[Rfam]
RNA sequence: AAGCUGUGAUGACGGUUUCGUUAAUUGGGAUGGUAGGGUCUAUCCCAUCUGUCUGAUUUUCCGACGAGACAAAGCGCUUCUGAGCUU
Numbered sequence: 001a002a003g004c005u006g007u008g009a010u011g012a013c014g015g016u017u018u019c020g021u022u023a024a025u026u027g028g029g030a031u032g033g034u035a036g037g038g039u040c041u042a043u044c045c046c047a048u049c050u051g052u053c054u055g056a057u058u059u060u061c062c063g064a065c066g067a068g069a070c071a072a073a074g075c076g077c078u079u080c081u082g083a084g085c086u087u
Stems, first nucleotide, its partner, number of pairs: 001087004

The record is an 87-nucleotide sequence from Gossypium aridum, which matches "small nucleolar RNA snoR114" in Rfam. It scores 66 bits against the family's covariance model. On this family, see Chen and Wu, Nucleic Acids Res 2009: "Mining small RNA sequencing data: a new approach to identify small nucleolar RNAs in Arabidopsis". The base pairs follow the family's consensus structure, which was predicted with RNAalifold.